The family of this 113-nucleotide RNA sequence from Peribacillus loiseleuriae is "epsC RNA". It scores 110 bits against the family's covariance model. By type it is a cis-regulatory element. The organism belongs to Peribacillus, within Bacteria.
RNA sequence: UGGCGAUGUCUCCUUGCCGUUAUCAAUGGAGAUACUCGAUCAUGCUGUGGGUUUUAAACAAACCUUAGACGCUAGUCGUCAAAAGUGUGGUGUGAGGGAGGGUUGAAUGCCCU
Numbered sequence: 001u002g003g004c005g006a007u008g009u010c011u012c013c014u015u016g017c018c019g020u021u022a023u024c025a026a027u028g029g030a031g032a033u034a035c036u037c038g039a040u041c042a043u044g045c046u047g048u049g050g051g052u053u054u055u056a057a058a059c060a061a062a063c064c065u066u067a068g069a070c071g072c073u074a075g076u077c078g079u080c081a082a083a084a085g086u087g088u089g090g091u092g093u094g095a096g097g098g099a100g101g102g103u104u105g106a107a108u109g110c111c112c113u
Stems, first nucleotide, its partner, number of pairs: 001019004007034007035096004039091008049065006068080004099113005